[Rfam]
RNA sequence: GGUGGGAACGCACGGCCGCAACUCUGACAACGCCGCCGAUUGGCGGCUCGGGAUUGCGGUGGUGU
Numbered sequence: 001g002g003u004g005g006g007a008a009c010g011c012a013c014g015g016c017c018g019c020a021a022c023u024c025u026g027a028c029a030a031c032g033c034c035g036c037c038g039a040u041u042g043g044c045g046g047c048u049c050g051g052g053a054u055u056g057c058g059g060u061g062g063u064g065u
Stems, first nucleotide, its partner, number of pairs: 010065004015060007024052002032047006